[Rfam]
RNA sequence: GCGCAUCCAGUCGGAAUUGAACCUACGAAUUCGCCAAUUAGGAGUUGGCCACUUUAACCAUUUAGCCAUGGAUGC
Numbered sequence: 001g002c003g004c005a006u007c008c009a010g011u012c013g014g015a016a017u018u019g020a021a022c023c024u025a026c027g028a029a030u031u032c033g034c035c036a037a038u039u040a041g042g043a044g045u046u047g048g049c050c051a052c053u054u055u056a057a058c059c060a061u062u063u064a065g066c067c068a069u070g071g072a073u074g075c
Stems, first nucleotide, its partner, number of pairs: 003075006010026002013023002040069001042067001044066005
About this RNA: Shown here is a 75-nucleotide sequence from Beta vulgaris, a member of the family "Plastid-ycf2 5UTR RNA". Rfam describes the family as follows. Plastid ycf2 is a non-coding RNA (ncRNA) recognised in plastids. It was found in the prime untranslated region (5UTR) of ycf2 genes, it presents a tRNA-like motif which suggests it can be involved in mRNA maturation, particularly involved in defining the precise 5' end of the transcript. The family's RNA type in Rfam is cis-regulatory element. Rfam 15.1 lists 3,521 matches to the family in 417 species.